This 128-nucleotide sequence from Panagrolaimus sp. PS1159 belongs to the Rfam family "Nematode snoRNA ceN39". By type it is an H/ACA-box small nucleolar RNA.
RNA sequence: UAGGCAGAUAGGAACCAAGUAAAACCCUCAUGGUUUACUUGGGCCGAAACCCUGCCAAUAUCAAAGACGAAAAAUGGUCGCACGAUGUUUUUUAUGGACAUGGCGCAUUACCCUCUUUUGCAACAAUU
Numbered sequence: 001u002a003g004g005c006a007g008a009u010a011g012g013a014a015c016c017a018a019g020u021a022a023a024a025c026c027c028u029c030a031u032g033g034u035u036u037a038c039u040u041g042g043g044c045c046g047a048a049a050c051c052c053u054g055c056c057a058a059u060a061u062c063a064a065a066g067a068c069g070a071a072a073a074a075u076g077g078u079c080g081c082a083c084g085a086u087g088u089u090u091u092u093u094a095u096g097g098a099c100a101u102g103g104c105g106c107a108u109u110a111c112c113c114u115c116u117u118u119u120g121c122a123a124c125a126a127u128u
Base pairs, nucleotide, nucleotide: 003056004055005054006053007052011045012044015042016041017040018039019038020037021036022035023034026033027032068120069119070118071117072116076112077111078110080106081105083103085101086100087099089098090097091096